[Rfam]
RNA sequence: CUCUGGAGAGCGGCGCACGCUUCUGGCCAAGCGCCCACCGAUGGGGCAAGGCGGCUGCAAAUGACGAUUGCAGCCCGACAAUCUCUCAGGUAAAUGGACAGGG
Dot-bracket structure: (((((......((((................)))).(((((..(((...(............................)...))))).))).......)))))